A member of the RNA family "c-di-GMP-I riboswitch aptamer" from Litchfieldia salsa, 85 nucleotides long.
Nucleotides: 085
Stems, first nucleotide, its partner, number of pairs: 012037002017032006040079004045075003048070003055064003
Number, partner (000 for none) and nucleotide at each position: 001000u002000a003000a004000a005000g006000a007000a008000a009000a010000u011000g012037g013036c014000a015000a016000a017032c018031u019030u020029a021028u022027c023000g024000a025000a026000a027022g028021g029020u030019a031018g032017g033000g034000a035000c036013g037012c038000a039000a040079a041078a042077c043076u044000u045075c046074a047073g048070g049069c050068c051000u052000a053000a054000g055064g056063c057062a058000g059000a060000a061000a062057u063056g064055u065000g066000a067000u068050g069049g070048c071000a072000g073047c074046u075045g076043g077042g078041u079040u080000a081000c082000c083000u084000a085000a
The family's consensus secondary structure is taken from published work. Gene Ontology term of the family: cyclic-di-GMP binding.